A member of the RNA family "Potassium channel RNA editing signal" from Pararge aegeria, 114 nucleotides long. Pairs were carried over by alignment from the consensus structure, which is taken from published work. The match comes from Rfam's covariance-model search (93 bits). The literature on the family includes a 2004 paper in Nat Struct Mol Biol by Bhalla et al., "Control of human potassium channel inactivation by editing of a small mRNA hairpin".
[Rfam]
RNA sequence: GUGGGCUACGGAGACAUGGCGCCCAAGACGUACUUGGGCAUGUUCGUGGGCGCCUUAUGUGCGCUGGCCGGCGUGCUCACGAUAGCCUUGCCCGUGCCCGUCAUCGUGUCAAAC
Numbered sequence: 001g002u003g004g005g006c007u008a009c010g011g012a013g014a015c016a017u018g019g020c021g022c023c024c025a026a027g028a029c030g031u032a033c034u035u036g037g038g039c040a041u042g043u044u045c046g047u048g049g050g051c052g053c054c055u056u057a058u059g060u061g062c063g064c065u066g067g068c069c070g071g072c073g074u075g076c077u078c079a080c081g082a083u084a085g086c087c088u089u090g091c092c093c094g095u096g097c098c099c100g101u102c103a104u105c106g107u108g109u110c111a112a113a114c
Stems, first nucleotide, its partner, number of pairs: 001114002005110001007108005013102003018097001021095002037077004050062002